This 63-nucleotide RNA sequence from Thiomonas sp. X19 belongs to the Rfam family "Betaproteobacteria toxic small RNA".
Taxonomically the source falls in Thiomonas (Bacteria, Pseudomonadati, Pseudomonadota, Burkholderiales).

[Rfam]
RNA sequence: UGUCUCCUCCACCCUCCUCCUUAGGUGGAUUCCAACCCAGGCAACAAGCCUGGGUUUUUUUUG
Numbered sequence: 001u002g003u004c005u006c007c008u009c010c011a012c013c014c015u016c017c018u019c020c021u022u023a024g025g026u027g028g029a030u031u032c033c034a035a036c037c038c039a040g041g042c043a044a045c046a047a048g049c050c051u052g053g054g055u056u057u058u059u060u061u062u063g
Base pairs, nucleotide, nucleotide: 008029009028010027011026012025013024034056035055036054037053038052039051040050041049